The record is a 354-nucleotide part of an RNA from Firmicutes bacterium AF12-30, which matches "Bacterial small subunit ribosomal RNA" in Rfam. A search with the family's covariance model found it, with a score of 1575 bits. The family is grouped with related families in Rfam's "SSU clan". Pairs were carried over by alignment from the consensus structure, which is taken from published work. Gene Ontology terms of the family: structural constituent of ribosome and ribosome.
RNA sequence: GGUGUAAAGGGUGCGUAGGUGGUAUGGCAAGUCAGAAGUGAAAACCCAGGGCUUAACUCUGGGACUGCUUUUGAAACUGUCAGACUGGAGUGCAGGAGAGGUAAGCGGAAUUCCUAGUGUAGCGGUGAAAUGCGUAGAUAUUAGGAGGAACAUCAGUGGCGAAGGCGGCUUACUGGACUGAAACUGACACUGAGGCACGAAAGCGUGGGGAGCAAACAGGAUUAGAUACCCUGGUAGUCCACGCCGUAAACGAUGAAUACUAGGUGUCGGGGCCGUAGAGGCUUCGGUGCCGCAGCCAACGCAGUAAGUAUUCCACCUGGGGAGUACGUUCGCAAGAAUGAAACUCAAAGGAAU
Numbered sequence: 001g002g003u004g005u006a007a008a009g010g011g012u013g014c015g016u017a018g019g020u021g022g023u024a025u026g027g028c029a030a031g032u033c034a035g036a037a038g039u040g041a042a043a044a045c046c047c048a049g050g051g052c053u054u055a056a057c058u059c060u061g062g063g064a065c066u067g068c069u070u071u072u073g074a075a076a077c078u079g080u081c082a083g084a085c086u087g088g089a090g091u092g093c094a095g096g097a098g099a100g101g102u103a104a105g106c107g108g109a110a111u112u113c114c115u116a117g118u119g120u121a122g123c124g125g126u127g128a129a130a131u132g133c134g135u136a137g138a139u140a141u142u143a144g145g146a147g148g149a150a151c152a153u154c155a156g157u158g159g160c161g162a163a164g165g166c167g168g169c170u171u172a173c174u175g176g177a178c179u180g181a182a183a184c185u186g187a188c189a190c191u192g193a194g195g196c197a198c199g200a201a202a203g204c205g206u207g208g209g210g211a212g213c214a215a216a217c218a219g220g221a222u223u224a225g226a227u228a229c230c231c232u233g234g235u236a237g238u239c240c241a242c243g244c245c246g247u248a249a250a251c252g253a254u255g256a257a258u259a260c261u262a263g264g265u266g267u268c269g270g271g272g273c274c275g276u277a278g279a280g281g282c283u284u285c286g287g288u289g290c291c292g293c294a295g296c297c298a299a300c301g302c303a304g305u306a307a308g309u310a311u312u313c314c315a316c317c318u319g320g321g322g323a324g325u326a327c328g329u330u331c332g333c334a335a336g337a338a339u340g341a342a343a344c345u346c347a348a349a350g351g352a353a354u
Stems, first nucleotide, its partner, number of pairs: 001317003009314001011198004016192001018191003022085002025082004030078002032074009045063007089185003093180003100174007107151001111147008122133003159166002203244006212238002217233004255313006263291012295302002319346003328339004